[Rfam]
This 61-nucleotide RNA sequence from Pristionchus pacificus belongs to the Rfam family "mir-8364 microRNA precursor family". Taxonomically the source falls in Pristionchus (Eukaryota, Bilateria, Nematoda, Rhabditida).
RNA sequence: UCUUCAUUCCACGUGCUCUCUCACCGGUCAGACAGCCGAGAGUGCACACGAAAUGAAGAGA
Dot-bracket structure: (((((((..(..((((..((((...............))))..))))..)..)))))))..